About this RNA
Shown here is a 93-nucleotide sequence from Punica granatum, a member of the family "Small nucleolar RNA R44/J54/Z268 family". The organism belongs to Punica, within Eukaryota. The family is grouped with related families in Rfam's "SNORD74 clan". The family has 29 seed sequences and 1,168 matches in Rfam 15.1. Rfam classes the family as a C/D-box small nucleolar RNA.
[Rfam]
RNA sequence: GUUGCAAGUGAUGAUAGAACAGACAGGGACAUCAGCAACCCAGUGAACUGGGGAUGAUGACUUGGUCUAAAUUGGGAAUCUCUCUGAUGCAAU
Numbered sequence: 001g002u003u004g005c006a007a008g009u010g011a012u013g014a015u016a017g018a019a020c021a022g023a024c025a026g027g028g029a030c031a032u033c034a035g036c037a038a039c040c041c042a043g044u045g046a047a048c049u050g051g052g053g054a055u056g057a058u059g060a061c062u063u064g065g066u067c068u069a070a071a072u073u074g075g076g077a078a079u080c081u082c083u084c085u086g087a088u089g090c091a092a093u
Stems, first nucleotide, its partner, number of pairs: 002092005